[Rfam]
RNA sequence: UGUAAUAAAGUUGCCAUCGCUUAUCUCCUUCGUUAAAGAACAUGAAGGGUAGUGUAAGACUAUUAAUGCUUUGAAUAUAGAGGAGAAAAAAGGAAUUUUAGAAGUGGCACCAGAUUGAAUAAAUCUGGUGCGUCCGAGUGGACUCGAACCACCGACCCCCACCA
Numbered sequence: 001u002g003u004a005a006u007a008a009a010g011u012u013g014c015c016a017u018c019g020c021u022u023a024u025c026u027c028c029u030u031c032g033u034u035a036a037a038g039a040a041c042a043u044g045a046a047g048g049g050u051a052g053u054g055u056a057a058g059a060c061u062a063u064u065a066a067u068g069c070u071u072u073g074a075a076u077a078u079a080g081a082g083g084a085g086a087a088a089a090a091a092g093g094a095a096u097u098u099u100a101g102a103a104g105u106g107g108c109a110c111c112a113g114a115u116u117g118a119a120u121a122a123a124u125c126u127g128g129u130g131c132g133u134c135c136g137a138g139u140g141g142a143c144u145c146g147a148a149c150c151a152c153c154g155a156c157c158c159c160c161a162c163c164a
Stems, first nucleotide, its partner, number of pairs: 024048003030042001033039001071086002126161003130157001135154002138152004
Dot-bracket structure: .......................(((...(..(.....)..)...)))......................((............)).......................................(((.(....((.((((.......))))))..).)))...
A member of the RNA family "Bacterial antisense RNA HPnc0260" from Escherichia fergusonii, 164 nucleotides long.
A reference for the family is Sharma et al. (2010), "The primary transcriptome of the major human pathogen Helicobacter pylori", Nature.
Lineage of the source: Bacteria > Pseudomonadota > Enterobacterales > Enterobacteriaceae > Escherichia fergusonii.